Background
This 169-nucleotide RNA from Rhizobium sp. CIAT894 belongs to the Rfam family "Group II catalytic intron D1-D4-3". Rfam's curators put it in the seed alignment.
RNA sequence: GUGAGGGUGACCGAGCGUGGGGAGGAAGCGUGGAUCGAAACUGCGGGCCGAUGGACAAGAACCGGAUAUGAGGCGGUGCCGACCAGGGCGAGCGGGCAACGAACCGCGAAGCUCUUGUGACCAAGAGGCGGUGGCGUAAUCCCGCGGUCGUGCAGGGAAAGGAGUGCGU
Numbered sequence: 001g002u003g004a005g006g007g008u009g010a011c012c013g014a015g016c017g018u019g020g021g022g023a024g025g026a027a028g029c030g031u032g033g034a035u036c037g038a039a040a041c042u043g044c045g046g047g048c049c050g051a052u053g054g055a056c057a058a059g060a061a062c063c064g065g066a067u068a069u070g071a072g073g074c075g076g077u078g079c080c081g082a083c084c085a086g087g088g089c090g091a092g093c094g095g096g097c098a099a100c101g102a103a104c105c106g107c108g109a110a111g112c113u114c115u116u117g118u119g120a121c122c123a124a125g126a127g128g129c130g131g132u133g134g135c136g137u138a139a140u141c142c143c144g145c146g147g148u149c150g151u152g153c154a155g156g157g158a159a160a161g162g163a164g165u166g167c168g169u
Base pairs, nucleotide, nucleotide: 001016002015005012006011028169029168030167031166032165035162036161041155042154043153044152045151046149047148048147049146050145062144064142065141066140067139073137074136075135077133078132079131080130081129083128086114087113088112089111092107093106094105095104